[Rfam]
RNA sequence: GUGACAGAAGAAAGAGAGCACACAUGGUUCUUUUCUUGCAUGAACCGUCAUGUUGGAAGCUAUAUGUGCUCUCUCUCUAUCUGUCAC
Numbered sequence: 001g002u003g004a005c006a007g008a009a010g011a012a013a014g015a016g017a018g019c020a021c022a023c024a025u026g027g028u029u030c031u032u033u034u035c036u037u038g039c040a041u042g043a044a045c046c047g048u049c050a051u052g053u054u055g056g057a058a059g060c061u062a063u064a065u066g067u068g069c070u071c072u073c074u075c076u077c078u079a080u081c082u083g084u085c086a087c
Stems, first nucleotide, its partner, number of pairs: 001087008010077002013074009024063002

The record is an 87-nucleotide RNA from Prunus persica, which matches "mir-156 microRNA precursor family" in Rfam.
On this family, see Ambros, Cell 2001: "microRNAs: tiny regulators with great potential".
Rfam links the family to the GO terms miRNA-mediated post-transcriptional gene silencing and RISC complex.
From the family's description: This family represents the plant microRNA (miRNA) precursor mir-156.
NCBI's taxonomy places the organism under Eukaryota, Embryophyta, Spermatophyta, rosids, Prunus.